[Rfam]
RNA sequence: UGGUAAUGUCUCCAAUUCCACUAUCAAAGGAGGCACUCGGUCACACUGUGGGUAUAAACGAAAACGUUUGCCUUAGACUCAAUGUCAAUGGUGUGUUGUGAGGGUGGGUUCAAUGCCCA
Numbered sequence: 001u002g003g004u005a006a007u008g009u010c011u012c013c014a015a016u017u018c019c020a021c022u023a024u025c026a027a028a029g030g031a032g033g034c035a036c037u038c039g040g041u042c043a044c045a046c047u048g049u050g051g052g053u054a055u056a057a058a059c060g061a062a063a064a065c066g067u068u069u070g071c072c073u074u075a076g077a078c079u080c081a082a083u084g085u086c087a088a089u090g091g092u093g094u095g096u097u098g099u100g101a102g103g104g105u106g107g108g109u110u111c112a113a114u115g116c117c118c119a
Stems, first nucleotide, its partner, number of pairs: 001020003007035007036102004040097001042095006050073003055070005076086003105119005
RNA: epsC RNA
Organism: Jeotgalibacillus sp. S-D1